About this RNA
Rfam assigns this 222-nucleotide RNA sequence from Desulfobacter postgatei to the family "HNH endonuclease-associated RNA and ORF (HEARO) RNA". A reference for the family is Weinberg et al. (2009), "Exceptional structured noncoding RNAs revealed by bacterial metagenome analysis", Nature. The family's RNA type in Rfam is non-coding RNA gene. Taxonomically the source falls in Desulfobacter postgatei (Bacteria, Thermodesulfobacteriota, Desulfobacteraceae, Desulfobacter). The family has 139 seed sequences and 952 matches in Rfam 15.1.

[Rfam]
RNA sequence: GUCAACUACCCCCUCCUGAAUCACAGAUUCAGAAGGGGCUUGUAAAAGCCCGAGUUGACUAGCCUGAGUCCUUGUUAUCGGGGACUACGUUCGGCAGGAUGUAGAUACCUUUGGAUAUAUUCGCCAGUCCAAAGCACUAUCGUGGCUCUGUAAAAGCCCUGUGAGGUAGGGGCGGUCAACCAUAUUGCGAAGCCUGCUGAACAUUGGCGAGGCGAAUCUUAC
Numbered sequence: 001g002u003c004a005a006c007u008a009c010c011c012c013c014u015c016c017u018g019a020a021u022c023a024c025a026g027a028u029u030c031a032g033a034a035g036g037g038g039c040u041u042g043u044a045a046a047a048g049c050c051c052g053a054g055u056u057g058a059c060u061a062g063c064c065u066g067a068g069u070c071c072u073u074g075u076u077a078u079c080g081g082g083g084a085c086u087a088c089g090u091u092c093g094g095c096a097g098g099a100u101g102u103a104g105a106u107a108c109c110u111u112u113g114g115a116u117a118u119a120u121u122c123g124c125c126a127g128u129c130c131a132a133a134g135c136a137c138u139a140u141c142g143u144g145g146c147u148c149u150g151u152a153a154a155a156g157c158c159c160u161g162u163g164a165g166g167u168a169g170g171g172g173c174g175g176u177c178a179a180c181c182a183u184a185u186u187g188c189g190a191a192g193c194c195u196g197c198u199g200a201a202c203a204u205u206g207g208c209g210a211g212g213c214g215a216a217u218c219u220u221a222c
Stems, first nucleotide, its partner, number of pairs: 001059007010038002013035002016032007039048003062208003066204001067086007089202010105140002109134008119217007142183004149178002154176001156173005
Dot-bracket structure: (((((((..((.((.(((((((...))))))).)).))(((....)))....)))))))..(((.((((((((......)))))))..((((((((((......((..((((((((..[[[[[[[.))))))))....)).((((...((...(.(((((........)))))..))).)))).........)))))))))).).)))..]]]]]]].....